Mammalian CPEB3 ribozyme: a 77-nucleotide RNA from Crocodylus porosus. A search with the family's covariance model found it, with a score of 36 bits. NCBI's taxonomy places the organism under Eukaryota, Opisthokonta, Sarcopterygii, Crocodylidae, Crocodylus. The family's consensus secondary structure is taken from published work.
[Rfam]
RNA sequence: GGUUGCAAACUUGAGGACACAGAAGAAGUGUACAUGAGGUGGCCCUGUCAGAUUCCAAAGAACCUGUUAAUUUUGCU
Numbered sequence: 001g002g003u004u005g006c007a008a009a010c011u012u013g014a015g016g017a018c019a020c021a022g023a024a025g026a027a028g029u030g031u032a033c034a035u036g037a038g039g040u041g042g043c044c045c046u047g048u049c050a051g052a053u054u055c056c057a058a059a060g061a062a063c064c065u066g067u068u069a070a071u072u073u074u075g076c077u
Base pairs, nucleotide, nucleotide: 013045015044016043018041021077022076024074025073026072027071028040029039049066050065051064053062054061055060